[Rfam]
RNA sequence: CGAGGCCGCGCGGGAGAGUUCCGACCCUGUCCGGGCCGGGCGCCGAAGGAGCAAGUCCUCCCUUGAAUCUCUCAGGCACAGAUACCGCGCGGGCGAG
Numbered sequence: 001c002g003a004g005g006c007c008g009c010g011c012g013g014g015a016g017a018g019u020u021c022c023g024a025c026c027c028u029g030u031c032c033g034g035g036c037c038g039g040g041c042g043c044c045g046a047a048g049g050a051g052c053a054a055g056u057c058c059u060c061c062c063u064u065g066a067a068u069c070u071c072u073c074a075g076g077c078a079c080a081g082a083u084a085c086c087g088c089g090c091g092g093g094c095g096a097g
Stems, first nucleotide, its partner, number of pairs: 006092008020040004042077003045073002049071003055064001

A member of the RNA family "Glycine riboswitch aptamer" from Actinacidiphila rubida, 97 nucleotides long. The organism belongs to Actinacidiphila, within Bacteria.